[Rfam]
Rfam assigns this 446-nucleotide part of an RNA from Octopus sinensis to the family "Eukaryotic large subunit ribosomal RNA". The source organism's lineage runs through Eukaryota, Protostomia, Spiralia, Octopodiformes and Octopus. A search with the family's covariance model found it, with a score of 2612 bits. For this family Rfam cites "Crystal structure of the ribosome at 5.5 A resolution" (Yusupov et al., Science, 2001).
RNA sequence: GGUAGUAGCAAUUACUCAAAUGAGAACUUUGAGGGCCUAUGUGGAGAAGGGUUUCAUGUGAACAUGAGUUGUACAUGAGUUAGUCGGUCCUAAGCACGUUGUCAAGUCAUUUGAAAUGGCUAGUGUAGCCUGUGUGCGAAAGGGAAUGGGGUUAAUAUUCCCGAACCUAAGAAGGCUGUUUAUGCGGCGACGCUGUUGUAACAGUCUAGGACGGCAGGUGUUCUGGGAAGAGUUAUCUUUUCUUCUAAAGGGUCGGUUUCUCUUGAAAUGGUUUAGCCAGCGAAAGAGAAGUUGUUGAUCAUUACGAUCAUAUCCGCAGAGCAUUGCAGUUUUUGCUGUGUCCAGUGUACACCUGACGUUUCAUAAAACGCCUGUUACAGUUUAACAGUCACUUGGGCCGUACCAAUAACCGCAGCAGGUCUCCAAGGUUAGCAGCCUCUGGUCAA
Dot-bracket structure: ..............((((((.......))))))((((.....((((..((...((((((...((.....)).))))))......(((.((...(((.(.((......))).)......(((.....)))......))....))...(.(((........))).)..((((...(((((.....(((....))).......((((.(...((((.(((((((.(((((((((.........))))))...((((.....((((((....(((.....)))....))))))......................))))......(((.(((.....))).)))..)))...))))))).)))).........).))))..........)))))..)))).)))..)).....((......)).)))).((((.....))))..))))..